[Rfam]
RNA sequence: GUUGAGAGGAAUGGUGCGCUGGCUCGAGAUUUCUGGCGGCUUUCAAAGUCCAUGAAUAUAAUGAUGAUGAAUCUUUCAUUUCAUCUAUCUCGGACCAGGCUUCAUUCCUUUCAAC
Numbered sequence: 001g002u003u004g005a006g007a008g009g010a011a012u013g014g015u016g017c018g019c020u021g022g023c024u025c026g027a028g029a030u031u032u033c034u035g036g037c038g039g040c041u042u043u044c045a046a047a048g049u050c051c052a053u054g055a056a057u058a059u060a061a062u063g064a065u066g067a068u069g070a071a072u073c074u075u076u077c078a079u080u081u082c083a084u085c086u087a088u089c090u091c092g093g094a095c096c097a098g099g100c101u102u103c104a105u106u107c108c109u110u111u112c113a114a115c
Stems, first nucleotide, its partner, number of pairs: 001115013016100002019098004025092003
Dot-bracket structure: (((((((((((((..((.((((..(((..............................................................)))..))))))..)))))))))))))
A member of the RNA family "mir-166 microRNA precursor family" from Senna tora, 115 nucleotides long. A search with the family's covariance model found it, with a score of 69 bits. Pairs were carried over by alignment from the consensus structure, which was predicted with PFOLD. The organism belongs to Senna, within Eukaryota. For this family Rfam cites "MicroRNAs in plants" (Reinhart et al., Genes Dev, 2002). This family represents the plant microRNA (miRNA) precursor mir-166.